[Rfam]
RNA sequence: CGUCCAAGGAGCGUUGCGACGGGGCCGGUUGCCGGCUCCGCCAGGCUUGGAGCUCGGAACCACGCUCACCCGCC
Numbered sequence: 001c002g003u004c005c006a007a008g009g010a011g012c013g014u015u016g017c018g019a020c021g022g023g024g025c026c027g028g029u030u031g032c033c034g035g036c037u038c039c040g041c042c043a044g045g046c047u048u049g050g051a052g053c054u055c056g057g058a059a060c061c062a063c064g065c066u067c068a069c070c071c072g073c074c
Stems, first nucleotide, its partner, number of pairs: 003051005020040008